RNA: Xanthomonadaceae sRNA asX1
RNA sequence: CACCCGGGGUGGCAGGCGCUUCAAGGCGCCGCCGGAUUGGAACAGGGGCUGGCGAGUACACGCCGGGGAAGCGCAGGGGCCGAAUGUCGGGGGACGUUCGGCCCCUUUUUU
Numbered sequence: 001c002a003c004c005c006g007g008g009g010u011g012g013c014a015g016g017c018g019c020u021u022c023a024a025g026g027c028g029c030c031g032c033c034g035g036a037u038u039g040g041a042a043c044a045g046g047g048g049c050u051g052g053c054g055a056g057u058a059c060a061c062g063c064c065g066g067g068g069a070a071g072c073g074c075a076g077g078g079g080c081c082g083a084a085u086g087u088c089g090g091g092g093g094a095c096g097u098u099c100g101g102c103c104c105c106u107u108u109u110u111u
Base pairs, nucleotide, nucleotide: 003067004066005065006064007063009061010060011059012057013056015030016029017028018027019026031053032052033051034050035049037046038045075106076105077104078103079102080101081100082099083098084097085096086095087094088093